[Rfam]
RNA sequence: GUUGGUUAUGGCGAUAUGGUUCCAAAAACAUAUGUUGGCAUGAUGGUUGGUGGUUUAUGUGCAUUAACAGGUGUAUUAACAAUUGCAUUACCAGUUCCUGUUAUUGUUGCUAAU
Numbered sequence: 001g002u003u004g005g006u007u008a009u010g011g012c013g014a015u016a017u018g019g020u021u022c023c024a025a026a027a028a029c030a031u032a033u034g035u036u037g038g039c040a041u042g043a044u045g046g047u048u049g050g051u052g053g054u055u056u057a058u059g060u061g062c063a064u065u066a067a068c069a070g071g072u073g074u075a076u077u078a079a080c081a082a083u084u085g086c087a088u089u090a091c092c093a094g095u096u097c098c099u100g101u102u103a104u105u106g107u108u109g110c111u112a113a114u
Stems, first nucleotide, its partner, number of pairs: 001114002004111002008107004013102004018097002021094001037077002040074001050062002

A member of the RNA family "Potassium channel RNA editing signal" from Rotaria sp. Silwood1, 114 nucleotides long. A reference for the family is Bhalla et al. (2004), "Control of human potassium channel inactivation by editing of a small mRNA hairpin", Nat Struct Mol Biol. Gene Ontology term of the family: adenosine to inosine editing. The source organism's lineage runs through Eukaryota, Opisthokonta, Gnathifera, Philodinida and Rotaria. From the family's description: This family represents a group of sequences related to the human potassium channel Kv1.1 hairpin element which directs the efficient modification of an adenosine to inosine by an adenosine deaminase acting on RNA (ADAR). The ADAR modification causes an isoleucine/valine recoding event which lies in the ion-conducting pore of the potassium channel. It is thought that this editing event targets the process of fast inactivation and allows a more rapid recovery from inactivation at negative potentials. The family's consensus secondary structure is taken from published work.